[Rfam]
RNA sequence: AUGGGGACUAGCCCGGGUGGAUCGGCGUCACUUGUGACCUGAAAUCGUCGGAAUGCAGGGGGCGAAGUUUGAGGAAGGUUGGUACAUACGGCCUGUAUCUGUCGUGUUUCCGACGUAGAAACCCUGUCCUGUGAGGUCGGUGGCCAGGUAUCACACCUUCGGAGGAAGGAACGACCUGUUGUCGCGGGGACCGGUUCAGGCCCGGAAGGGAGCAGACUUACCGUGAACAUUCGGCGCCCAUGGGGUUGCGGGGCGGAGAAGGAGACCCUUGGAAAAGGCUGCAAUGACCGAUCGACCGAUAACGUGUCCCUAU
Numbered sequence: 001a002u003g004g005g006g007a008c009u010a011g012c013c014c015g016g017g018u019g020g021a022u023c024g025g026c027g028u029c030a031c032u033u034g035u036g037a038c039c040u041g042a043a044a045u046c047g048u049c050g051g052a053a054u055g056c057a058g059g060g061g062g063c064g065a066a067g068u069u070u071g072a073g074g075a076a077g078g079u080u081g082g083u084a085c086a087u088a089c090g091g092c093c094u095g096u097a098u099c100u101g102u103c104g105u106g107u108u109u110c111c112g113a114c115g116u117a118g119a120a121a122c123c124c125u126g127u128c129c130u131g132u133g134a135g136g137u138c139g140g141u142g143g144c145c146a147g148g149u150a151u152c153a154c155a156c157c158u159u160c161g162g163a164g165g166a167a168g169g170a171a172c173g174a175c176c177u178g179u180u181g182u183c184g185c186g187g188g189g190a191c192c193g194g195u196u197c198a199g200g201c202c203c204g205g206a207a208g209g210g211a212g213c214a215g216a217c218u219u220a221c222c223g224u225g226a227a228c229a230u231u232c233g234g235c236g237c238c239c240a241u242g243g244g245g246u247u248g249c250g251g252g253g254c255g256g257a258g259a260a261g262g263a264g265a266c267c268c269u270u271g272g273a274a275a276a277g278g279c280u281g282c283a284a285u286g287a288c289c290g291a292u293c294g295a296c297c298g299a300u301a302a303c304g305u306g307u308c309c310c311u312a313u
Stems, first nucleotide, its partner, number of pairs: 001313008011063004015033006038059004043054001067303003073297002077293005083286002087283001089281006096274001098272001104268001106266006114258001116256001122253006128244006135237001136235004140230003143179001145178004151174002156169005182226006193218004201210003
The record is a 313-nucleotide RNA sequence from Methanospirillum hungatei, which matches "Archaeal signal recognition particle RNA" in Rfam. The match comes from Rfam's covariance-model search (177 bits). The family's consensus secondary structure is taken from published work. NCBI's taxonomy places the organism under Archaea, Methanomicrobia, Methanospirillaceae, Methanospirillum, Methanospirillum hungatei. Rfam classes the family as a non-coding RNA gene.